Description: abiF RNA: a 37-nucleotide sequence. Rfam 15.1 lists 282 matches to the family in 274 species. Actinobacteria, Bacteroidetes, Clostridia, Proteobacteria, one Clostridia phage. By type it is a small RNA.
RNA sequence: CCCCAAAAGCCUCUCAACGAUGCUCAAAUGUGGGGGG
Numbered sequence: 001c002c003c004c005a006a007a008a009g010c011c012u013c014u015c016a017a018c019g020a021u022g023c024u025c026a027a028a029u030g031u032g033g034g035g036g037g
Base pairs, nucleotide, nucleotide: 001036002035003034004033006031008024009023010022